[Rfam]
A member of the RNA family "U1 spliceosomal RNA" from Mus spicilegus, 164 nucleotides long. Rfam describes the family as follows. U1 is a small nuclear RNA (snRNA) component of the spliceosome (involved in pre-mRNA splicing). Its 5' end forms complementary base pairs with the 5' splice junction, thus defining the 5' donor site of an intron. The base pairs follow the family's consensus structure, which is taken from published work.

RNA sequence: AUACUUACCUAGCAGGGGAGAUGCCAUGAUCAUGAAGGUGGUUUUCUCAGAGCAAGGCUUAUCUUUUGCGCUCCUAAUGUACUGAUUCCUGUGAUUUCCACAAAUGUAGGAAACAAGACUUUGUAAUCUAUGGUAAUAGGGGACUGUGCUUGUGCUCGCCACUG
Numbered sequence: 001a002u003a004c005u006u007a008c009c010u011a012g013c014a015g016g017g018g019a020g021a022u023g024c025c026a027u028g029a030u031c032a033u034g035a036a037g038g039u040g041g042u043u044u045u046c047u048c049a050g051a052g053c054a055a056g057g058c059u060u061a062u063c064u065u066u067u068g069c070g071c072u073c074c075u076a077a078u079g080u081a082c083u084g085a086u087u088c089c090u091g092u093g094a095u096u097u098c099c100a101c102a103a104a105u106g107u108a109g110g111a112a113a114c115a116a117g118a119c120u121u122u123g124u125a126a127u128c129u130a131u132g133g134u135a136a137u138a139g140g141g142g143a144c145u146g147u148g149c150u151u152g153u154g155c156u157c158g159c160c161a162c163u164g
Stems, first nucleotide, its partner, number of pairs: 012122001014120002016048006023042005049090002052087001054086001056083002060079003092117001095113003099109001138163002141160002146155003